[Rfam]
RNA sequence: CCGCUCGUCAUCGGGGAGUAGCCGCCCUGCGCAAUGCAGGGGCGCGCGUCAACAUGCUUGGCCGACAGGCCAUGGCGCGUGCAGCUUUCAGGCCUGGCAAGACCUUUGACCGCGCUGCCUACGGGAAGGGCCGGGAGGCGGUGUGGUCUUUCGUCCGUCCGGCCCUGGAGUUC
Numbered sequence: 001c002c003g004c005u006c007g008u009c010a011u012c013g014g015g016g017a018g019u020a021g022c023c024g025c026c027c028u029g030c031g032c033a034a035u036g037c038a039g040g041g042g043c044g045c046g047c048g049u050c051a052a053c054a055u056g057c058u059u060g061g062c063c064g065a066c067a068g069g070c071c072a073u074g075g076c077g078c079g080u081g082c083a084g085c086u087u088u089c090a091g092g093c094c095u096g097g098c099a100a101g102a103c104c105u106u107u108g109a110c111c112g113c114g115c116u117g118c119c120u121a122c123g124g125g126a127a128g129g130g131c132c133g134g135g136a137g138g139c140g141g142u143g144u145g146g147u148c149u150u151u152c153g154u155c156c157g158u159c160c161g162g163c164c165c166u167g168g169a170g171u172u173c
Stems, first nucleotide, its partner, number of pairs: 026040003042082010059072005083172006
Rfam assigns this 173-nucleotide RNA sequence from Thauera linaloolentis to the family "Manganese Mn2+ riboswitch aptamer (yybP-ykoY)". The organism belongs to Thauera linaloolentis, within Bacteria. A search with the family's covariance model found it, with a score of 99 bits. This RNA was originally discovered in E. coli during a large scale screen and was named SraF. The family was later found to exist upstream of related families of protein genes in many bacteria, including the the yybP and ykoK genes in B. subtilis. The specific functions of these proteins are unknown, but this structured RNA element may be involved in their genetic regulation as a riboswitch. The pairing is the family consensus, mapped onto this sequence.